This 167-nucleotide RNA sequence from Agrilus planipennis belongs to the Rfam family "R2 RNA element". This family represents the 3' UTR region of the R2 retrotransposable element. This family is known to interact with the R2-encoded reverse transcriptase in a reaction known as target primed reverse transcription (TPRT). Rfam 15.1 lists 3,698 matches to the family in 74 species. A reference for the family is Ruschak et al. (2004), "Secondary structure models of the 3' untranslated regions of diverse R2 RNAs", RNA. The base pairs follow the family's consensus structure, which is taken from published work.

RNA sequence: ACUUUACCUGAGGUUUACGACUGAAGAGGACCUGAACCGAUAGGUCCUAGAACGGCCUGCGGUAGAGGGGUUUUAGUCGGUAGGUCCGAGGACACCUUCCUCAGGAAUCCGACACUACCCAGCCAUACGGAUGGCUGGGUGUCUUUUGAAGAUUUCCCCUCUUCCAC
Numbered sequence: 001a002c003u004u005u006a007c008c009u010g011a012g013g014u015u016u017a018c019g020a021c022u023g024a025a026g027a028g029g030a031c032c033u034g035a036a037c038c039g040a041u042a043g044g045u046c047c048u049a050g051a052a053c054g055g056c057c058u059g060c061g062g063u064a065g066a067g068g069g070g071u072u073u074u075a076g077u078c079g080g081u082a083g084g085u086c087c088g089a090g091g092a093c094a095c096c097u098u099c100c101u102c103a104g105g106a107a108u109c110c111g112a113c114a115c116u117a118c119c120c121a122g123c124c125a126u127a128c129g130g131a132u133g134g135c136u137g138g139g140u141g142u143c144u145u146u147u148g149a150a151g152a153u154u155u156c157c158c159c160u161c162u163u164c165c166a167c
Stems, first nucleotide, its partner, number of pairs: 028047006061165002064162002067158003076113005085105002088102005115141001117140005